The record is an 84-nucleotide RNA from Schaalia cardiffensis, which matches "ZMP/ZTP riboswitch aptamer (pfl RNA motif)" in Rfam.

[Rfam]
RNA sequence: UGGUGGGGUCGUGACUGGCGAACAGGUGGGGAACCACCGGGGAGCGAUGAACAGGUACUGGGGCCGCCCGCCUGGGCCCGAAUG
Number, nucleotide and partner (000 for none) at each position: 001u000002g000003g000004u000005g000006g000007g000008g048009u047010c046011g045012u044013g000014a000015c041016u040017g072018g071019c070020g069021a000022a000023c000024a000025g000026g037027u036028g035029g034030g000031g000032a000033a000034c029035c028036a027037c026038c000039g000040g016041g015042g000043a000044g012045c011046g010047a009048u008049g000050a000051a000052c000053a000054g000055g000056u000057a000058c000059u000060g000061g079062g078063g077064c076065c075066g000067c000068c000069c020070g019071c018072c017073u000074g000075g065076g064077c063078c062079c061080g000081a000082a000083u000084g000